Shown here is an 83-nucleotide RNA from Closterium sp. NIES-68, a member of the family "Small nucleolar RNA SNORD24".
The match comes from Rfam's covariance-model search (49 bits).
Gene Ontology terms of the family: RNA processing and nucleolus.
A reference for the family is Qu et al. (1995), "U24, a novel intron-encoded small nucleolar RNA with two 12 nt long, phylogenetically conserved complementarities to 28S rRNA", Nucleic Acids Res.
The base pairs follow the family's consensus structure, which was predicted with PFOLD.
By type it is a C/D-box small nucleolar RNA.
Taxonomically the source falls in Closterium peracerosum-strigosum-littorale complex (Eukaryota, Viridiplantae, Streptophyta, Streptophytina).

RNA sequence: GGCCGGUGAUUAUACGAAGUAUUUGCUACUCUUGACGGCUACGGCCGCAUGACGAUUUACUAUCCACCAAGAUCUAUGAGGCC
Numbered sequence: 001g002g003c004c005g006g007u008g009a010u011u012a013u014a015c016g017a018a019g020u021a022u023u024u025g026c027u028a029c030u031c032u033u034g035a036c037g038g039c040u041a042c043g044g045c046c047g048c049a050u051g052a053c054g055a056u057u058u059a060c061u062a063u064c065c066a067c068c069a070a071g072a073u074c075u076a077u078g079a080g081g082c083c
Stems, first nucleotide, its partner, number of pairs: 001083004